This 112-nucleotide RNA sequence from Gallus gallus belongs to the Rfam family "Y RNA". It is one of the family's seed sequences. Lineage of the source: Eukaryota > Amniota > Dinosauria > Galloanserae > Gallus. The family's RNA type in Rfam is non-coding RNA gene.

RNA sequence: GGCUGGUCCGAAGGUAGUGGGGUGUCUCAAUUGAUUGUUCACAGUCAGUUACAGAUUGAUCUCCUCGUUCUCUCUUUCCCCCCUUCCCACUACUGCACUUGACUAGUCUUUU
Numbered sequence: 001g002g003c004u005g006g007u008c009c010g011a012a013g014g015u016a017g018u019g020g021g022g023u024g025u026c027u028c029a030a031u032u033g034a035u036u037g038u039u040c041a042c043a044g045u046c047a048g049u050u051a052c053a054g055a056u057u058g059a060u061c062u063c064c065u066c067g068u069u070c071u072c073u074c075u076u077u078c079c080c081c082c083c084u085u086c087c088c089a090c091u092a093c094u095g096c097a098c099u100u101g102a103c104u105a106g107u108c109u110u111u112u
Stems, first nucleotide, its partner, number of pairs: 001108008010100002014096002016091006043075002047071002